Rfam assigns this 71-nucleotide RNA sequence from Sodalis-like symbiont of Bactericera trigonica to the family "PyrD leader".
[Rfam]
RNA sequence: AUUCCCUUUCCUGCGCCGAUGAUUGAUAAUACCGCCCCGGUUGUAACCGGGAAUCAGGAGACCUCAUGUUA
Numbered sequence: 001a002u003u004c005c006c007u008u009u010c011c012u013g014c015g016c017c018g019a020u021g022a023u024u025g026a027u028a029a030u031a032c033c034g035c036c037c038c039g040g041u042u043g044u045a046a047c048c049g050g051g052a053a054u055c056a057g058g059a060g061a062c063c064u065c066a067u068g069u070u071a
Base pairs, nucleotide, nucleotide: 036051037050038049039048040047041046
On this family, see Sorensen, Nucleic Acids Res 1994: "Conformational heterogeneity in the Salmonella typhimurium pyrC and pyrD leader mRNAs produced in vivo".
Rfam links the family to the GO term regulation of gene expression.
It is annotated as a cis-regulatory leader.
The organism belongs to Sodalis, within Bacteria.
A search with the family's covariance model found it, with a score of 61 bits.